RNA: c-di-GMP-I-GGC riboswitch aptamer
Organism: Lutispora thermophila
RNA sequence: UGCGACAAAGGUAAACUUAGCGAAAGCUAAAGACGCAAAGCUAUGGGCCUAACAGAUUAUGCUGAUGGUUGCCAAGCUGCCGAAA
Numbered sequence: 001u002g003c004g005a006c007a008a009a010g011g012u013a014a015a016c017u018u019a020g021c022g023a024a025a026g027c028u029a030a031a032g033a034c035g036c037a038a039a040g041c042u043a044u045g046g047g048c049c050u051a052a053c054a055g056a057u058u059a060u061g062c063u064g065a066u067g068g069u070u071g072c073c074a075a076g077c078u079g080c081c082g083a084a085a
Base pairs, nucleotide, nucleotide: 001085003082004081011036012035017030018029019028020027021026034071039078040077041076042075044074045073046072047069048068049067